[Rfam]
c-di-GMP-I riboswitch aptamer: an 86-nucleotide RNA sequence from Hydrogenoanaerobacterium saccharovorans. Rfam links the family to the GO term cyclic-di-GMP binding. The source organism's lineage runs through Bacteria, Bacillota, Clostridia, Eubacteriales and Hydrogenoanaerobacterium. A search with the family's covariance model found it, with a score of 72 bits.
RNA sequence: CUGAAAAAUAGGCAAAGCCAGCGAAAGCUGGUGACGCAAAGCUGUGAGUCUAAAGCAUAAUUUGCUAUGGCCGUCAAGCUGCAAUC
Dot-bracket structure: ...........((...((((((....))))))...))..((((.((((((....(((.....)))...)))..)))))))......